[Rfam]
RNA sequence: GUUAGCUGUAAUGUCACACUUGGGAUGCACAUACGGAGUACAAGAAAAAAAUAAUACUAUUGGCUUUAAAACACCUAUACCAAAAUUAGUUACUCGAUUCAUCCCGGGAAGGUCUGAGUAAAGGUCGUGGUGCAAAGUGGUCACCGUUCCUUCUAGCCGGAGGCAUUGCUAAUAGUGAUGGCAGAGAAACAAGAAACAUUAACUUGAGGGCUGGUCUAGGACUCAUUGACGAGAUUUAACCCUUAAAGUUAUUGGAAUUCUCUGCGACCAGCGAUUUUAGUACAAUCUGUGACACAGAUUUUCAUCUGUAACUCAAUUCAGACUAGUCUUCGGCUUGC
Dot-bracket structure: ((.(...(.(..((((((...(((((.........((((((...............................................).))))).....)))))........[[[[[....................((((......(((((.....)))))((((((.....))))))(((((((............(((..............................................))).......)))))))))))..................))))))((((((....)))))).......]]]]].......).)...).))
Numbered sequence: 001g002u003u004a005g006c007u008g009u010a011a012u013g014u015c016a017c018a019c020u021u022g023g024g025a026u027g028c029a030c031a032u033a034c035g036g037a038g039u040a041c042a043a044g045a046a047a048a049a050a051a052u053a054a055u056a057c058u059a060u061u062g063g064c065u066u067u068a069a070a071a072c073a074c075c076u077a078u079a080c081c082a083a084a085a086u087u088a089g090u091u092a093c094u095c096g097a098u099u100c101a102u103c104c105c106g107g108g109a110a111g112g113u114c115u116g117a118g119u120a121a122a123g124g125u126c127g128u129g130g131u132g133c134a135a136a137g138u139g140g141u142c143a144c145c146g147u148u149c150c151u152u153c154u155a156g157c158c159g160g161a162g163g164c165a166u167u168g169c170u171a172a173u174a175g176u177g178a179u180g181g182c183a184g185a186g187a188a189a190c191a192a193g194a195a196a197c198a199u200u201a202a203c204u205u206g207a208g209g210g211c212u213g214g215u216c217u218a219g220g221a222c223u224c225a226u227u228g229a230c231g232a233g234a235u236u237u238a239a240c241c242c243u244u245a246a247a248g249u250u251a252u253u254g255g256a257a258u259u260c261u262c263u264g265c266g267a268c269c270a271g272c273g274a275u276u277u278u279a280g281u282a283c284a285a286u287c288u289g290u291g292a293c294a295c296a297g298a299u300u301u302u303c304a305u306c307u308g309u310a311a312c313u314c315a316a317u318u319c320a321g322a323c324u325a326g327u328c329u330u331c332g333g334c335u336u337g338c
Stems, first nucleotide, its partner, number of pairs: 001338002004335001008331001010329001013293006022105005036095005041089001114321005139269004149163005164180006181265007200251003294309006